[Rfam]
The record is a 64-nucleotide RNA, which matches "pemK RNA" in Rfam.
RNA sequence: AUAAUGAUACUUCCGUAAUUCGCGGCCCGGCCAUAAUGAAGGCGGGGGGAUGAGAUUUCCAUGG
Dot-bracket structure: ...........(((((.....))))(((.(((........))).)))(((.......))))...
Numbered sequence: 001a002u003a004a005u006g007a008u009a010c011u012u013c014c015g016u017a018a019u020u021c022g023c024g025g026c027c028c029g030g031c032c033a034u035a036a037u038g039a040a041g042g043c044g045g046g047g048g049g050a051u052g053a054g055a056u057u058u059c060c061a062u063g064g
Stems, first nucleotide, its partner, number of pairs: 012061001013025004026047003030043003048060003
It is annotated as a cis-regulatory element.